[Rfam]
RNA: Acido-Lenti-1 RNA
Organism: Lacipirellula parvula
RNA sequence: CCAGGGGCUUACGCCCCUGGCUACAACAUUUCGCCCCUCUGGGGCU
Numbered sequence: 001c002c003a004g005g006g007g008c009u010u011a012c013g014c015c016c017c018u019g020g021c022u023a024c025a026a027c028a029u030u031u032c033g034c035c036c037c038u039c040u041g042g043g044g045c046u
Base pairs, nucleotide, nucleotide: 001020002019003018004017005016006015007014008013033045034044035043036042037041